The record is an 81-nucleotide RNA sequence from Lichenibacterium ramalinae, which matches "Makes More Granules Regulator RNA (mmgR)" in Rfam. Rfam links the family to the GO terms response to nitrogen compound, DNA-templated transcription, termination and protein binding. A search with the family's covariance model found it, with a score of 63 bits. Rfam's curators write: SuhB later renamed mmgR (makes more granules regulator) was a putative non-coding RNA found multiple times in the Agrobacterium tumefaciens genome and related alpha-proteobacteria. Other non-coding RNAs uncovered in the same analysis include: speF, ybhL, metA, and serC.Several studies inSinorhizobium meliloti showed that suhB element is indeed a non-coding RNA:firstly it was detected on Northern blot and called Sm8RNA, secondly in an RNAseq study referred to as SmelC689.The mutant phenotype's (strain lacking the small RNA) cytoplasm contains higher content of polyhydroxybutyrate (PBH)storage granules than wild type strain. Its Rfam clan is "suhB sRNA clan". Lineage of the source: Bacteria > Pseudomonadati > Pseudomonadota > Hyphomicrobiales > Lichenibacterium.
RNA sequence: GCCGUAUGCCCUUCUUGGGCGUUUCCUCCCUAGACUUGGGCCGCUCGCCGAAAGGCUGAGCGGCCUCUUUCUUUCGGGGCC
Dot-bracket structure: .......((((.....)))).................(((((((((...........)))))))))...............